[Rfam]
RNA: Lysine riboswitch aptamer
Organism: Paenactinomyces guangxiensis
RNA sequence: CGGUGAGGUAGAGGUCGCAGCUUUUAGGAGUAUUCUGUACGAGAUCCGGAGAAGAUUGAGGACUGCAGAAGAAAGGAAAAGUUGCCGAAGUUCACCUGUUUUCUCCGGGCAGGCGGGCUGGGGCUGUUUCCGAACAGGGACAGAACUGUCACGUUUACAGCCGGUAAGCGUGGUGUGCUAUCUUCAGC
Numbered sequence: 001c002g003g004u005g006a007g008g009u010a011g012a013g014g015u016c017g018c019a020g021c022u023u024u025u026a027g028g029a030g031u032a033u034u035c036u037g038u039a040c041g042a043g044a045u046c047c048g049g050a051g052a053a054g055a056u057u058g059a060g061g062a063c064u065g066c067a068g069a070a071g072a073a074a075g076g077a078a079a080a081g082u083u084g085c086c087g088a089a090g091u092u093c094a095c096c097u098g099u100u101u102u103c104u105c106c107g108g109g110c111a112g113g114c115g116g117g118c119u120g121g122g123g124c125u126g127u128u129u130c131c132g133a134a135c136a137g138g139g140a141c142a143g144a145a146c147u148g149u150c151a152c153g154u155u156u157a158c159a160g161c162c163g164g165u166a167a168g169c170g171u172g173g174u175g176u177g178c179u180a181u182c183u184u185c186a187g188c
Stems, first nucleotide, its partner, number of pairs: 006183006017085009033070007089119005095113006120147002124143007149173007